[Rfam]
RNA sequence: CCAUCAUCACCAUCACCCUGACUAGUCUUUCAGGCGAUUGGUGCUGGGAGACUGUUUAGAUCUUCCAGUGGCGCAGAACGUAGAGAUAGCCCCCGGAAGAUGACUUCCGGGGGUUUUUUUUU
Numbered sequence: 001c002c003a004u005c006a007u008c009a010c011c012a013u014c015a016c017c018c019u020g021a022c023u024a025g026u027c028u029u030u031c032a033g034g035c036g037a038u039u040g041g042u043g044c045u046g047g048g049a050g051a052c053u054g055u056u057u058a059g060a061u062c063u064u065c066c067a068g069u070g071g072c073g074c075a076g077a078a079c080g081u082a083g084a085g086a087u088a089g090c091c092c093c094c095g096g097a098a099g100a101u102g103a104c105u106u107c108c109g110g111g112g113g114u115u116u117u118u119u120u121u122u
Base pairs, nucleotide, nucleotide: 008043009042010041012038013037014036017034018033019032020031021030044068045067046066047065048064049063050062051061084119085118086117088115089114090113091112092111093110094109095108096107097106098105099104